The record is a 119-nucleotide RNA from Halopolyspora algeriensis, which matches "Glycine riboswitch aptamer" in Rfam.
[Rfam]
RNA sequence: AUACCUCUGGAAAGAGAGUCGGCCACCAUCGGUGGCGGGCUCCGCCGACGGUGCAAGCUCGGCUACGCCGGGUGAAGCUCUCAGGCGUCCGCAUUGCGGACAUUGACAGAGGGGGAGGG
Numbered sequence: 001a002u003a004c005c006u007c008u009g010g011a012a013a014g015a016g017a018g019u020c021g022g023c024c025a026c027c028a029u030c031g032g033u034g035g036c037g038g039g040c041u042c043c044g045c046c047g048a049c050g051g052u053g054c055a056a057g058c059u060c061g062g063c064u065a066c067g068c069c070g071g072g073u074g075a076a077g078c079u080c081u082c083a084g085g086c087g088u089c090c091g092c093a094u095u096g097c098g099g100a101c102a103u104u105g106a107c108a109g110a111g112g113g114g115g116a117g118g119g
Base pairs, nucleotide, nucleotide: 002114004112005111006110007109008108009107016042017041018040019039044086045085046084047082048081051080053078057073058072059071060070061069
NCBI's taxonomy places the organism under Bacteria, Bacillati, Actinomycetota, Actinomycetes, Halopolyspora. Clan: Glycine riboswitch clan.